[Rfam]
RNA sequence: AGCCUUGCCGCUUGGCAAAAAAUAACAAGCAGUAACGGGUGUCGGUAGGCCGGUAACGGUUCGAAGGCUCCCAAUUAAGCAAAGCAGACCC
Number, nucleotide and partner (000 for none) at each position: 001a000002g000003c000004c000005u000006u017007g016008c015009c014010g000011c000012u000013u000014g009015g008016c007017a006018a000019a000020a000021a000022a000023u000024a000025a000026c000027a000028a000029g000030c000031a000032g000033u000034a000035a000036c000037g000038g000039g000040u000041g068042u067043c000044g000045g000046u000047a000048g062049g000050c000051c058052g057053g000054u000055a000056a000057c052058g051059g000060u000061u000062c048063g000064a000065a000066g000067g042068c041069u000070c000071c000072c000073a000074a000075u000076u000077a000078a000079g000080c000081a000082a000083a000084g000085c000086a000087g000088a000089c000090c000091c000
Shown here is a 91-nucleotide sequence, a member of the family "RT-17 RNA". The sequence is in the family's curated seed alignment. The base pairs follow the family's consensus structure, which is taken from published work.